[Rfam]
RNA: mir-3116 microRNA precursor family
Organism: Ornithorhynchus anatinus
RNA sequence: UAUUGAGCACUUACUAUGUGCAGAGCACUGUACUAAGUGCAGUGCUCUGCACAUAGUAAGUGCUCAAUA
Numbered sequence: 001u002a003u004u005g006a007g008c009a010c011u012u013a014c015u016a017u018g019u020g021c022a023g024a025g026c027a028c029u030g031u032a033c034u035a036a037g038u039g040c041a042g043u044g045c046u047c048u049g050c051a052c053a054u055a056g057u058a059a060g061u062g063c064u065c066a067a068u069a
Stems, first nucleotide, its partner, number of pairs: 001069029